Overview:
Small nucleolar RNA SNORD24: an 88-nucleotide sequence from Hyaloperonospora arabidopsidis. Gene Ontology terms of the family: RNA processing and nucleolus. The family's RNA type in Rfam is C/D-box small nucleolar RNA. A reference for the family is Qu et al. (1995), "U24, a novel intron-encoded small nucleolar RNA with two 12 nt long, phylogenetically conserved complementarities to 28S rRNA", Nucleic Acids Res. The source organism's lineage runs through Eukaryota, Sar, Oomycota, Hyaloperonospora and Hyaloperonospora arabidopsidis.
RNA sequence: UGUCGAUGAUGUAUCAAAAUAUUUGCUACUCUUGAUAUACUUUCGAGUAUUGUGACGACAUAUUAUUAUCACCAAGAUCACUGAGACG
Numbered sequence: 001u002g003u004c005g006a007u008g009a010u011g012u013a014u015c016a017a018a019a020u021a022u023u024u025g026c027u028a029c030u031c032u033u034g035a036u037a038u039a040c041u042u043u044c045g046a047g048u049a050u051u052g053u054g055a056c057g058a059c060a061u062a063u064u065a066u067u068a069u070c071a072c073c074a075a076g077a078u079c080a081c082u083g084a085g086a087c088g
Stems, first nucleotide, its partner, number of pairs: 001088004